A member of the RNA family "Small nucleolar RNA snoR31/Z110/Z27" from Carya illinoinensis, 108 nucleotides long. This family contains several related snoRNAs including R31, Z27 and Z110. NCBI's taxonomy places the organism under Eukaryota, Spermatophyta, rosids, Fagales, Carya. Gene Ontology terms of the family: nucleolus and RNA processing.
RNA sequence: AGCAUCAUCAAGAUGAUGAAUUCAGAAAAAAUCUUAGGACACCUUCUGAAACAGCACGAGCGUGCUGUUUAUGAGAAAGAUUUUUAUGUUUUCUGAUAACUUGAUGCU
Numbered sequence: 001a002g003c004a005u006c007a008u009c010a011a012g013a014u015g016a017u018g019a020a021u022u023c024a025g026a027a028a029a030a031a032u033c034u035u036a037g038g039a040c041a042c043c044u045u046c047u048g049a050a051a052c053a054g055c056a057c058g059a060g061c062g063u064g065c066u067g068u069u070u071a072u073g074a075g076a077a078a079g080a081u082u083u084u085u086a087u088g089u090u091u092u093c094u095g096a097u098a099a100c101u102u103g104a105u106g107c108u
Base pairs, nucleotide, nucleotide: 001108002107003106004105005104006103007102047053048052